[Rfam]
RNA: rpsB sRNA
RNA sequence: CACACGCGGAAGACGGCACUCAAGAGUUGCGUGCCGGUCCGGUGCCCGGCCUAGCCGGGGCAUGAUCCGCGGAGGAGGAACCGGAGAAAGGACAGCC
Numbered sequence: 001c002a003c004a005c006g007c008g009g010a011a012g013a014c015g016g017c018a019c020u021c022a023a024g025a026g027u028u029g030c031g032u033g034c035c036g037g038u039c040c041g042g043u044g045c046c047c048g049g050c051c052u053a054g055c056c057g058g059g060g061c062a063u064g065a066u067c068c069g070c071g072g073a074g075g076a077g078g079a080a081c082c083g084g085a086g087a088a089a090g091g092a093c094a095g096c097c
Stems, first nucleotide, its partner, number of pairs: 001074001003072001005071006015035002021033002024030001045059006